[Rfam]
RNA sequence: ACGUGGGUUUUUUAAUUGCAUGAUUAUGCAACCAUACGGGAACCUUACAUAAGCGCAGGUCGUAAAACAAUGAAUUCAAGAACCAAAACGGUGCUACUGAUUGAAAUGAUUGAACAAACUGGGUAUGCUAAUCUUGCAAGUAAAAUAUGCACUAAGAAUGAGAAGCUUCAGAGAAUUCCGGUUUUUUCAAUUCCAUCUAUCUUAACUUUCAAUUAAAUUACUUGAAGAAAGAAUAUCUGUUUAGGAGAAAACGACGCUGAAAGUCUGUUAAAAGAUGAGUCUGACAUGUGUGAUAUUUAGAUAAUAUAAAAAGAGAGAUCUGAUAUGAAUAAUAUAGAAAUAGUAAAAUAUGGUAUACAGAAAAAAAAACCAAAUAUUAUGUAUAUAUAAAGAAAAAAAUAACCUGCGAAUAUUGAGAAGUA
Numbered sequence: 001a002c003g004u005g006g007g008u009u010u011u012u013u014a015a016u017u018g019c020a021u022g023a024u025u026a027u028g029c030a031a032c033c034a035u036a037c038g039g040g041a042a043c044c045u046u047a048c049a050u051a052a053g054c055g056c057a058g059g060u061c062g063u064a065a066a067a068c069a070a071u072g073a074a075u076u077c078a079a080g081a082a083c084c085a086a087a088a089c090g091g092u093g094c095u096a097c098u099g100a101u102u103g104a105a106a107u108g109a110u111u112g113a114a115c116a117a118a119c120u121g122g123g124u125a126u127g128c129u130a131a132u133c134u135u136g137c138a139a140g141u142a143a144a145a146u147a148u149g150c151a152c153u154a155a156g157a158a159u160g161a162g163a164a165g166c167u168u169c170a171g172a173g174a175a176u177u178c179c180g181g182u183u184u185u186u187u188c189a190a191u192u193c194c195a196u197c198u199a200u201c202u203u204a205a206c207u208u209u210c211a212a213u214u215a216a217a218u219u220a221c222u223u224g225a226a227g228a229a230a231g232a233a234u235a236u237c238u239g240u241u242u243a244g245g246a247g248a249a250a251a252c253g254a255c256g257c258u259g260a261a262a263g264u265c266u267g268u269u270a271a272a273a274g275a276u277g278a279g280u281c282u283g284a285c286a287u288g289u290g291u292g293a294u295a296u297u298u299a300g301a302u303a304a305u306a307u308a309a310a311a312a313g314a315g316a317g318a319u320c321u322g323a324u325a326u327g328a329a330u331a332a333u334a335u336a337g338a339a340a341u342a343g344u345a346a347a348a349u350a351u352g353g354u355a356u357a358c359a360g361a362a363a364a365a366a367a368a369a370c371c372a373a374a375u376a377u378u379a380u381g382u383a384u385a386u387a388u389a390a391a392g393a394a395a396a397a398a399a400u401a402a403c404c405u406g407c408g409a410a411u412a413u414u415g416a417g418a419a420g421u422a
Stems, first nucleotide, its partner, number of pairs: 002408008011398003031354006053060002067075001082092002099234001102231001110224001112221001114219001132163005139153003171194001173192002180187002242260001247258001267280003271276001298322005367382001369380001372378001